This 91-nucleotide RNA sequence from Salvia splendens belongs to the Rfam family "Small nucleolar RNA Z221/R21b". The family's RNA type in Rfam is C/D-box small nucleolar RNA. The base pairs follow the family's consensus structure, which was predicted with WAR. A search with the family's covariance model found it, with a score of 58 bits. The organism belongs to core Calosphace, within Eukaryota.
RNA sequence: GGGCGGUGAUGAGAAUGUAGAUAAUGUCAUGCACCACUCCGACGAUCUUCGUGUGACGACAACAUCUCAUACCCAAACAAUUUCUGAGCCC
Numbered sequence: 001g002g003g004c005g006g007u008g009a010u011g012a013g014a015a016u017g018u019a020g021a022u023a024a025u026g027u028c029a030u031g032c033a034c035c036a037c038u039c040c041g042a043c044g045a046u047c048u049u050c051g052u053g054u055g056a057c058g059a060c061a062a063c064a065u066c067u068c069a070u071a072c073c074c075a076a077a078c079a080a081u082u083u084c085u086g087a088g089c090c091c
Stems, first nucleotide, its partner, number of pairs: 001091004
Gene Ontology terms of the family: nucleolus and RNA processing. For this family Rfam cites "The high diversity of snoRNAs in plants: identification and comparative study of 120 snoRNA genes from Oryza sativa" (Chen et al., Nucleic Acids Res, 2003).